[Rfam]
RNA sequence: GGGUGAUAUGAUGAUGGUUGAUUAGUUUCCCUAUUGGUUUGAUGGCUGAGAUGAUGGCUCCAAUUGUAUUAGCUCUAUCUGAUUCCUC
Numbered sequence: 001g002g003g004u005g006a007u008a009u010g011a012u013g014a015u016g017g018u019u020g021a022u023u024a025g026u027u028u029c030c031c032u033a034u035u036g037g038u039u040u041g042a043u044g045g046c047u048g049a050g051a052u053g054a055u056g057g058c059u060c061c062a063a064u065u066g067u068a069u070u071a072g073c074u075c076u077a078u079c080u081g082a083u084u085c086c087u088c
Base pairs, nucleotide, nucleotide: 002087003086005084041060044059045058046057047056
Shown here is an 88-nucleotide RNA sequence from Elaeis guineensis, a member of the family "Small nucleolar RNA Z102/R77". The source organism's lineage runs through Eukaryota, Streptophyta, Arecales, Arecaceae and Elaeis. A reference for the family is Chen et al. (2003), "The high diversity of snoRNAs in plants: identification and comparative study of 120 snoRNA genes from Oryza sativa", Nucleic Acids Res. It scores 75 bits against the family's covariance model. It is annotated as a C/D-box small nucleolar RNA. The family has 9 seed sequences and 1,346 matches in Rfam 15.1. Rfam links the family to the GO terms nucleolus and RNA processing.